[Rfam]
RNA sequence: CAUCAAAUGAUAAAUUGAUCUUUUUUGUUAAAAACUGGCGUGGCUAACAAAAUAACGAGACAAUAACACAUGGCAUGUUACGUGUAUCUCAUGUUGACAUAUAGGAACCAGUUUUUAACAGUAAAAAUGGAUAGAAUUUUUAACA
Number, nucleotide and partner (000 for none) at each position: 001c000002a000003u143004c000005a141006a140007a139008u000009g137010a000011u135012a000013a000014a132015u131016u130017g000018a128019u127020c000021u125022u124023u123024u000025u121026u120027g000028u118029u117030a116031a115032a114033a113034a000035c000036u000037g000038g000039c000040g000041u000042g000043g000044c000045u000046a000047a000048c000049a000050a000051a000052a000053u000054a000055a000056c000057g000058a000059g000060a000061c000062a000063a000064u000065a000066a000067c000068a000069c000070a000071u000072g000073g000074c000075a000076u000077g000078u000079u000080a000081c000082g000083u000084g000085u000086a000087u000088c000089u000090c000091a000092u000093g000094u000095u000096g000097a000098c000099a000100u000101a000102u000103a000104g000105g000106a000107a000108c000109c000110a000111g000112u000113u033114u032115u031116u030117a029118a028119c000120a026121g025122u000123a023124a022125a021126a000127a019128u018129g000130g016131a015132u014133a000134g000135a011136a000137u009138u000139u007140u006141u005142a000143a003144c000145a000
Rfam assigns this 145-nucleotide sequence from Gossypium anomalum to the family "MIR7502 microRNA precursor family". A search with the family's covariance model found it, with a score of 87 bits. The base pairs follow the family's consensus structure, which was predicted with RNAalifold.